The family of this 126-nucleotide sequence from Methylomagnum ishizawai is "Y RNA-like". Rfam classes the family as a small RNA.
RNA sequence: UGGGCGAAUGCCGGUGGAACUACACGCCUGUCACGCGGGAGGUCGCGGGUUCGAUUCCCGCCGGUCCUUCGGGACCGUAGCUCAGAGGCCAGAGCGCCUUGUUUCACCACACCUUGUCGCCCAUCU
Numbered sequence: 001u002g003g004g005c006g007a008a009u010g011c012c013g014g015u016g017g018a019a020c021u022a023c024a025c026g027c028c029u030g031u032c033a034c035g036c037g038g039g040a041g042g043u044c045g046c047g048g049g050u051u052c053g054a055u056u057c058c059c060g061c062c063g064g065u066c067c068u069u070c071g072g073g074a075c076c077g078u079a080g081c082u083c084a085g086a087g088g089c090c091a092g093a094g095c096g097c098c099u100u101g102u103u104u105c106a107c108c109a110c111a112c113c114u115u116g117u118c119g120c121c122c123a124u125c126u
Stems, first nucleotide, its partner, number of pairs: 002122006013108007038098002045061005062077006080095004
Dot-bracket structure: .((((((.....(((((((..................((.....(((((.......)))))((((((....))))))..((((........)))).))...)))))))........))))))....